[Rfam]
RNA sequence: UCUUCAUCUCGCGUGCUCUCUCACCGGUCAGAGUGACAAGAGAGUACGAGAAAUGAAGAGA
Numbered sequence: 001u002c003u004u005c006a007u008c009u010c011g012c013g014u015g016c017u018c019u020c021u022c023a024c025c026g027g028u029c030a031g032a033g034u035g036a037c038a039a040g041a042g043a044g045u046a047c048g049a050g051a052a053a054u055g056a057a058g059a060g061a
Base pairs, nucleotide, nucleotide: 001059002058003057004056005055006054007053010050012048013047014046015045016044017043019041020040021039